[Rfam]
RNA sequence: AUUACCUGGAAAUCUUGUUAAAAUGCUGAUUCUGGGAAAGGUUCUGAGAUGCUGCAUUUCUAACAAGCUCCCAGGUAAUGUCAU
Numbered sequence: 001a002u003u004a005c006c007u008g009g010a011a012a013u014c015u016u017g018u019u020a021a022a023a024u025g026c027u028g029a030u031u032c033u034g035g036g037a038a039a040g041g042u043u044c045u046g047a048g049a050u051g052c053u054g055c056a057u058u059u060c061u062a063a064c065a066a067g068c069u070c071c072c073a074g075g076u077a078a079u080g081u082c083a084u
Stems, first nucleotide, its partner, number of pairs: 003077003009071001011069001014067007021059003025055002028052001031049003